[Rfam]
RNA sequence: GGAGAAGCAAAGUGAUGAGUAUUACUGACUGGAGCCCCAAAGAGGCACGUGUGUGUGUGUGUGUGUGUGUGUAUCUGUAUCCUUACCUGUGCAUGCACGUGUAUGUCAGAGAAUAUGAAUGUGUAUGACUGACUGUAGGGAACUAGUUAUGUGCCUACUGUUGGACCAUGACAGUCAAACUGAUAAGAUCUGAUUGCUUC
Numbered sequence: 001g002g003a004g005a006a007g008c009a010a011a012g013u014g015a016u017g018a019g020u021a022u023u024a025c026u027g028a029c030u031g032g033a034g035c036c037c038c039a040a041a042g043a044g045g046c047a048c049g050u051g052u053g054u055g056u057g058u059g060u061g062u063g064u065g066u067g068u069g070u071g072u073a074u075c076u077g078u079a080u081c082c083u084u085a086c087c088u089g090u091g092c093a094u095g096c097a098c099g100u101g102u103a104u105g106u107c108a109g110a111g112a113a114u115a116u117g118a119a120u121g122u123g124u125a126u127g128a129c130u131g132a133c134u135g136u137a138g139g140g141a142a143c144u145a146g147u148u149a150u151g152u153g154c155c156u157a158c159u160g161u162u163g164g165a166c167c168a169u170g171a172c173a174g175u176c177a178a179a180c181u182g183a184u185a186a187g188a189u190c191u192g193a194u195u196g197c198u199u200c
Stems, first nucleotide, its partner, number of pairs: 004200007014190003026177006036111001038109001041106001043104001045102012061087001065082001067080005113126004129146003134141001148170004153166001155164002

Background
The family of this 200-nucleotide RNA from Galemys pyrenaicus is "Small nucleolar RNA ZL1". Host gene TRRAP. Predicted target U2@U47. Only GU-rich region is homologous to other known snoRNAs. Conserved in vertebrates. Rfam links the family to the GO terms nucleolus and RNA processing. Taxonomically the source falls in Galemys (Eukaryota, Opisthokonta, Eumetazoa, Bilateria). On this family, see Kishore et al., Genome Biol 2013: "Insights into snoRNA biogenesis and processing from PAR-CLIP of snoRNA core proteins and small RNA sequencing".